[Rfam]
Nucleotides: 080
Base pairs, nucleotide, nucleotide: 003078004077005076006075007074009072010071011070012069013068014067015066016065017064018063020060021059022057023056024055025054026053027052028051032049033048
Number, partner (000 for none) and nucleotide at each position: 001000u002000c003078c004077c005076g006075c007074g008000u009072u010071c011070a012069g013068u014067u015066u016065u017064g018063c019000u020060g021059g022057u023056u024055u025054g026053c027052a028051u029000u030000c031000u032049g033048c034000u035000u036000a037000a038000a039000u040000c041000g042000a043000a044000g045000u046000u047000c048033g049032c050000u051028g052027u053026g054025c055024a056023a057022a058000u059021c060020c061000a062000u063018g064017c065016a066015a067014a068013a069012c070011u071010g072009a073000u074007u075006g076005c077004g078003g079000c080000a
Source information
A member of the RNA family "mir-19 microRNA precursor family" from Bagarius yarrelli, 80 nucleotides long. Its family is annotated with miRNA-mediated post-transcriptional gene silencing and RISC complex in the Gene Ontology. Clan: mir-19 clan.